Record summary
Rfam assigns this 116-nucleotide RNA from Winslowiella iniecta to the family "tp2". The base pairs follow the family's consensus structure, which was predicted with RNAalifold. A search with the family's covariance model found it, with a score of 71 bits. The organism belongs to Winslowiella, within Bacteria.
RNA sequence: GGUAUUCCUUAUCUGUGUCUAAUACGUUGAAUUGUCUGGAGCCUGCCUCCUUGUGCUCUGGGGUUGCCAGAACACAUGGAGACAGGCUCGUCGUUUAUACCUUUUAGCGCUGACGC
Numbered sequence: 001g002g003u004a005u006u007c008c009u010u011a012u013c014u015g016u017g018u019c020u021a022a023u024a025c026g027u028u029g030a031a032u033u034g035u036c037u038g039g040a041g042c043c044u045g046c047c048u049c050c051u052u053g054u055g056c057u058c059u060g061g062g063g064u065u066g067c068c069a070g071a072a073c074a075c076a077u078g079g080a081g082a083c084a085g086g087c088u089c090g091u092c093g094u095u096u097a098u099a100c101c102u103u104u105u106a107g108c109g110c111u112g113a114c115g116c
Base pairs, nucleotide, nucleotide: 001101002100003099004098024094025093026092039089040088041087042086043085044084045083047081050078052076053075054074057071058070059069060068
The literature on the family includes a 2001 paper in Curr Biol by Rivas et al., "Computational identification of noncoding RNAs in E. coli by comparative genomics".
It is annotated as a small RNA.